[Rfam]
RNA sequence: CUGAUCGAGACGCUGGGCCAACGCCUGUGCAGCGUGCCCGAUUCCAGGAGAACGUUGCCUGGGAGCGUCGAAGAAUCAG
Numbered sequence: 001c002u003g004a005u006c007g008a009g010a011c012g013c014u015g016g017g018c019c020a021a022c023g024c025c026u027g028u029g030c031a032g033c034g035u036g037c038c039c040g041a042u043u044c045c046a047g048g049a050g051a052a053c054g055u056u057g058c059c060u061g062g063g064a065g066c067g068u069c070g071a072a073g074a075a076u077c078a079g
Base pairs, nucleotide, nucleotide: 001079002078003077004076005075009069010068011067012066013065014040015039016038017037022034023033024032042064043063044062045061046060047059048058050056051055
The family of this 79-nucleotide RNA sequence is "L4-Archaeoglobi ribosomal protein leades".
Rfam's curators put it in the seed alignment.
The literature on the family includes a 2020 paper in BMC Microbiol by Eckert and Weinberg, "Discovery of 20 novel ribosomal leader candidates in bacteria and archaea".
Rfam classes the family as a cis-regulatory leader.